[Rfam]
RNA sequence: CUAUAUGCACCCUGUAGGUCCGAAUUUGUGUUCAUUCAGCAGCAGCCACAAAUUCGCAUCUUGGGGAGUUUGUAGG
Numbered sequence: 001c002u003a004u005a006u007g008c009a010c011c012c013u014g015u016a017g018g019u020c021c022g023a024a025u026u027u028g029u030g031u032u033c034a035u036u037c038a039g040c041a042g043c044a045g046c047c048a049c050a051a052a053u054u055c056g057c058a059u060c061u062u063g064g065g066g067a068g069u070u071u072g073u074a075g076g
Stems, first nucleotide, its partner, number of pairs: 002074004007069001010066003016061004021056010